[Rfam]
Rfam assigns this 63-nucleotide sequence from Priestia taiwanensis to the family "Bacillus-plasmid RNA".
RNA sequence: UAUGUCAACGGUAAGCGGACUACCGUAAGGUAGGAGCAUUAAGGAGUUGACAUACUGGACACA
Number, nucleotide and partner (000 for none) at each position: 001u054002a053003u052004g051005u050006c049007a048008a047009c046010g000011g000012u000013a000014a000015g000016c000017g000018g000019a000020c000021u000022a000023c000024c000025g000026u000027a000028a000029g000030g000031u000032a000033g000034g000035a000036g000037c000038a000039u000040u000041a000042a000043g000044g000045a000046g009047u008048u007049g006050a005051c004052a003053u002054a001055c000056u000057g000058g000059a000060c000061a000062c000063a000